The family of this 92-nucleotide sequence from Camellia sinensis is "small nucleolar RNA snoR114". For this family Rfam cites "Mining small RNA sequencing data: a new approach to identify small nucleolar RNAs in Arabidopsis" (Chen and Wu, Nucleic Acids Res, 2009). Its family is annotated with RNA processing and nucleolus in the Gene Ontology.

[Rfam]
RNA sequence: GAGCUGUGACGAUGACUGCACCUCUUGUUGGCAGUAGGGUCUGCCACACUUGUCCGAUUUCUUCAGAUGAUCAAUUAGGCGUUUCUAAGCUC
Numbered sequence: 001g002a003g004c005u006g007u008g009a010c011g012a013u014g015a016c017u018g019c020a021c022c023u024c025u026u027g028u029u030g031g032c033a034g035u036a037g038g039g040u041c042u043g044c045c046a047c048a049c050u051u052g053u054c055c056g057a058u059u060u061c062u063u064c065a066g067a068u069g070a071u072c073a074a075u076u077a078g079g080c081g082u083u084u085c086u087a088a089g090c091u092c
Stems, first nucleotide, its partner, number of pairs: 001092004
Taxonomically the source falls in Camellia (Eukaryota, Viridiplantae, Spermatophyta, asterids). The family's consensus secondary structure was predicted with RNAalifold.